[Rfam]
RNA sequence: AUAAGUGUAGGGUGGAGAUGCACAAUCGUCGGACUGCGUAGUUUCAAGACGCUUCAUUUCGUCCGCUACCGACCAUUGAUUCCUCCUCCUGACAAAGUGCUUCUGUCACGACAGCAAGCAGGAGACGUAGUCGCGAUCCUGGCCCCACUGGCUGGGGCUCGCUAGACACUGGGGUGGCCUGCCGCCCCUGACACGCACCUGACACCGACCGCGAGAGUCGUGUGCGCCAAUCGCCGUUUCCGGAAGCCCGGAAACCCA
Number, nucleotide and partner (000 for none) at each position: 001a000002u000003a000004a000005g000006u000007g000008u000009a000010g000011g000012g000013u000014g086015g085016a084017g083018a000019u000020g000021c000022a000023c078024a077025a076026u075027c000028g073029u072030c071031g070032g069033a000034c000035u000036g066037c065038g064039u000040a000041g000042u000043u000044u000045c000046a000047a000048g063049a062050c061051g060052c000053u000054u000055c000056a000057u000058u000059u000060c051061g050062u049063c048064c038065g037066c036067u000068a000069c032070c031071g030072a029073c028074c000075a026076u025077u024078g023079a000080u000081u000082c000083c017084u016085c015086c014087u123088c122089c121090u120091g119092a000093c000094a000095a000096a000097g000098u000099g000100c000101u000102u000103c000104u000105g000106u000107c000108a000109c000110g000111a000112c000113a000114g000115c000116a000117a000118g000119c091120a090121g089122g088123a087124g000125a000126c195127g194128u193129a000130g167131u166132c165133g162134c161135g160136a159137u000138c156139c155140u154141g153142g152143c151144c150145c000146c000147a000148c000149u000150g144151g143152c142153u141154g140155g139156g138157g000158c000159u136160c135161g134162c133163u000164a000165g132166a131167c130168a000169c000170u000171g188172g187173g186174g185175u184176g183177g182178c000179c000180u000181g000182c177183c176184g175185c174186c173187c172188c171189u000190g000191a000192c000193a128194c127195g126196c000197a000198c000199c000200u000201g000202a000203c224204a223205c222206c220207g219208a218209c217210c000211g000212c000213g000214a000215g000216a000217g209218u208219c207220g206221u000222g205223u204224g203225c000226g000227c000228c000229a000230a000231u000232c000233g000234c000235c000236g255237u254238u253239u252240c251241c250242g249243g000244a000245a000246g000247c000248c000249c242250g241251g240252a239253a238254a237255c236256c000257c000258a000
Record summary:
Rfam assigns this 258-nucleotide sequence from Metapseudomonas resinovorans to the family "rne-II RNA". The match comes from Rfam's covariance-model search (234 bits). The family's RNA type in Rfam is cis-regulatory element.